[Rfam]
RNA sequence: GGGAGUGGAUGGGGCCCGGUGGCUCUUGCGGACUUCAAAUCCGUUAUGCCUCGUGACGAGCGGGGUAGGUGGGUUCGACUCCCUCGCGCUCCC
Number, nucleotide and partner (000 for none) at each position: 001g093002g092003g091004a090005g089006u088007g087008g085009a000010u000011g026012g025013g024014g023015c022016c021017c000018g000019g000020u000021g016022g015023c014024u013025c012026u011027u000028g044029c043030g042031g041032a040033c000034u000035u000036c000037a000038a000039a000040u032041c031042c030043g029044u028045u000046a000047u067048g066049c065050c064051u063052c000053g000054u000055g000056a000057c000058g000059a000060g000061c000062g000063g051064g050065g049066u048067a047068g000069g000070u000071g083072g082073g081074u000075u000076c000077g000078a000079c000080u000081c073082c072083c071084u000085c008086g000087c007088g006089c005090u004091c003092c002093c001
RNA: Selenocysteine transfer RNA